[Rfam]
RNA sequence: CCCGGCCCCUCGCGUGGCGUCACCCUGCUGAACUCCCCCAGGGCCGGAAGGCAGCAAGGGCAGGCAGGCUCUGGCGGGUGCGCGGGGGGUCCUCUGC
Numbered sequence: 001c002c003c004g005g006c007c008c009c010u011c012g013c014g015u016g017g018c019g020u021c022a023c024c025c026u027g028c029u030g031a032a033c034u035c036c037c038c039c040a041g042g043g044c045c046g047g048a049a050g051g052c053a054g055c056a057a058g059g060g061c062a063g064g065c066a067g068g069c070u071c072u073g074g075c076g077g078g079u080g081c082g083c084g085g086g087g088g089g090u091c092c093u094c095u096g097c
Stems, first nucleotide, its partner, number of pairs: 004091011015078001018076005024068006035060003043052003
The family of this 97-nucleotide RNA sequence from Pseudokineococcus lusitanus is "Bacterial small signal recognition particle RNA". Gene Ontology terms of the family: signal recognition particle, plasma membrane targeting and SRP-dependent cotranslational protein targeting to membrane, signal sequence recognition. Its Rfam clan is "SRP clan". The signal recognition particle (SRP) is a universally conserved ribonucleoprotein involved in the co-translational targeting of proteins to membranes. It is annotated as a non-coding RNA gene. The source organism's lineage runs through Bacteria, Bacillati, Actinomycetes, Kineosporiaceae and Pseudokineococcus. Pairs were carried over by alignment from the consensus structure, which is taken from published work.